[Rfam]
RNA sequence: AUGAUGGCAGCGGGAGAGAUUGCCUGCAGGACCGGGGCGACGCCGAAGGAGCAACCUGCACGCAGGGGAAUCUCUCAGGCAAAAGGACCUUUGCCGGACG
Dot-bracket structure: .....(((((.((......((((((.........)))))).(((((..(((...((.........))....))))).))).......)).))))).....